[Rfam]
RNA: BsrG
RNA sequence: AGCAAUAGAAUAGGAUUUCUUAAGGGUGGUCGGCACACUCCCGAUAGAAAGGGGGUGAUGCUGAAUGACAGUUUUUGAAACACUCUCGAUUAUGAUCGCAUUUGCUGGUUUAAUCGUAGCUAUACUGUCAUUUAACCAAAAAAAAUAAUCCACCCUUGAGUUAGCGGCUCUGGUGGAUUAUUUUCCCUGAUAGCCGACCCCUCCUGAGGGACCAACUAUUGCUUGAUCAGGCAUGUUCUCCGCAUGCUUG
Numbered sequence: 001a002g003c004a005a006u007a008g009a010a011u012a013g014g015a016u017u018u019c020u021u022a023a024g025g026g027u028g029g030u031c032g033g034c035a036c037a038c039u040c041c042c043g044a045u046a047g048a049a050a051g052g053g054g055g056u057g058a059u060g061c062u063g064a065a066u067g068a069c070a071g072u073u074u075u076u077g078a079a080a081c082a083c084u085c086u087c088g089a090u091u092a093u094g095a096u097c098g099c100a101u102u103u104g105c106u107g108g109u110u111u112a113a114u115c116g117u118a119g120c121u122a123u124a125c126u127g128u129c130a131u132u133u134a135a136c137c138a139a140a141a142a143a144a145a146u147a148a149u150c151c152a153c154c155c156u157u158g159a160g161u162u163a164g165c166g167g168c169u170c171u172g173g174u175g176g177a178u179u180a181u182u183u184u185c186c187c188u189g190a191u192a193g194c195c196g197a198c199c200c201c202u203c204c205u206g207a208g209g210g211a212c213c214a215a216c217u218a219u220u221g222c223u224u225g226a227u228c229a230g231g232c233a234u235g236u237u238c239u240c241c242g243c244a245u246g247c248u249u250g
Stems, first nucleotide, its partner, number of pairs: 001223005007217002013200002016197002019160008028150003036057007067129006081094002104120003170189001172187001202211003228250009